The family of this 186-nucleotide sequence from Zasmidium cellare is "U2 spliceosomal RNA". The family has 208 seed sequences and 71,512 matches in Rfam 15.1. Pairs were carried over by alignment from the consensus structure, which is taken from published work. A search with the family's covariance model found it, with a score of 133 bits. Rfam's curators write: U2 is a small nuclear RNA (snRNA) component of the spliceosome (involved in pre-mRNA splicing). Complementary binding between U2 snRNA (in an area lying towards the 5' end but 3' to hairpin I) and the branchpoint sequence (BPS) of the intron results the bulging out of an unpaired adenosine, on the BPS, which initiates a nucleophilic attack at the intronic 5' splice site, thus starting the first of two transesterification reactions that mediate splicing.
[Rfam]
Nucleotides: 186
Stems, first nucleotide, its partner, number of pairs: 001015002042061006063076005106141008119130004144179006150172006
Number, partner (000 for none) and nucleotide at each position: 001015c002014u003000g004000a005000c006000a007000a008000u009000c010000u011000c012000g013000c014002a015001g016000c017000u018000u019000a020000g021000a022000u023000c024000a025000a026000g027000u028000g029000u030000a031000g032000u033000a034000u035000c036000u037000g038000u039000u040000c041000u042061u043060u044059u045058c046057a047056g048000u049000u050000u051000a052000a053000u054000c055000u056047c057046u058045g059044a060043a061042a062000c063076g064075a065074g066073u067072c068000u069000a070000c071000g072067g073066a074065c075064u076063c077000a078000u079000u080000c081000a082000a083000g084000a085000u086000u087000a088000u089000u090000c091000u092000u093000a094000u095000u096000u097000u098000u099000g100000g101000c102000a103000c104000u105000g106141g107140u108139c109138a110137u111136g112135c113134g114000g115000c116000c117000g118000c119130u120129g121128a122127g123000c124000u125000u126000g127122c128121u129120c130119a131000u132000g133000u134113c135112g136111c137110a138109u139108g140107g141106c142000a143000c144179c145178g146177u147176g148175u149174c150172g151171c152170c153169g154168g155167u156000a157000u158000u159000g160000c161000a162000c163000u164000a165000u166000c167155g168154c169153c170152g171151g172150c173000a174149g175148a176147c177146g178145c179144g180000a181000a182000u183000c184000a185000c186000u